Annotation:
The record is a 45-nucleotide RNA from Alkaliphilus sp. B6464, which matches "PreQ1 (pre queuosine) riboswitch aptamer" in Rfam. About the family: This family is a bacterial riboswitch that binds to the metabolite preQ1, an intermediate in the biosynthesis of the modified nucleoside queuosine from GTP. One example of this riboswitch is located in the leader of the Bacillus subtilis ykvJKLM (queCDEF) operon which encodes four genes necessary for queuosine production. PreQ1 binding to the riboswitch aptamer is thought to induce premature transcription termination within the leader to down-regulate expression of these genes.
[Rfam]
RNA sequence: CUUGGACUGGUUCGAGAUCCUCCCAGGAUAAAAAACUAAGGAAUG
Numbered sequence: 001c002u003u004g005g006a007c008u009g010g011u012u013c014g015a016g017a018u019c020c021u022c023c024c025a026g027g028a029u030a031a032a033a034a035a036c037u038a039a040g041g042a043a044u045g
Stems, first nucleotide, its partner, number of pairs: 007026004016037001